RNA sequence: CUUGAUCUAUUGUUUUCGUAGACCAUGUAGAGCUAAUUUCGUGUUGCUAAGUUGGGGCAAUGGUGGUGGUUUGGAGGAGUUUGGAG
Numbered sequence: 001c002u003u004g005a006u007c008u009a010u011u012g013u014u015u016u017c018g019u020a021g022a023c024c025a026u027g028u029a030g031a032g033c034u035a036a037u038u039u040c041g042u043g044u045u046g047c048u049a050a051g052u053u054g055g056g057g058c059a060a061u062g063g064u065g066g067u068g069g070u071u072u073g074g075a076g077g078a079g080u081u082u083g084g085a086g
Stems, first nucleotide, its partner, number of pairs: 001086003005082001009080003013077006022067005030058001033055007041047002
MIR7729 microRNA precursor family: an 86-nucleotide sequence from Brachypodium distachyon. Its family is annotated with miRNA-mediated post-transcriptional gene silencing and RISC complex in the Gene Ontology. The base pairs follow the family's consensus structure, which was predicted with RNAalifold.